[Rfam]
RNA sequence: GAAUGAGAUGAUGAUUUAUGUUUGUUUCCCUAUUGGUUUGAUAGCCGUGAUGAUGGCAUCUUCCAAUGUAUUAGCUCUAUCUGAUCAUUC
Numbered sequence: 001g002a003a004u005g006a007g008a009u010g011a012u013g014a015u016u017u018a019u020g021u022u023u024g025u026u027u028c029c030c031u032a033u034u035g036g037u038u039u040g041a042u043a044g045c046c047g048u049g050a051u052g053a054u055g056g057c058a059u060c061u062u063c064c065a066a067u068g069u070a071u072u073a074g075c076u077c078u079a080u081c082u083g084a085u086c087a088u089u090c
Base pairs, nucleotide, nucleotide: 002089003088004087005086040060044057045056046055
Rfam assigns this 90-nucleotide RNA sequence from Hevea brasiliensis to the family "Small nucleolar RNA Z102/R77". The family's consensus secondary structure was predicted with PFOLD. A search with the family's covariance model found it, with a score of 88 bits. Rfam classes the family as a C/D-box small nucleolar RNA. Clan: SNORD44 clan. Rfam links the family to the GO terms RNA processing and nucleolus.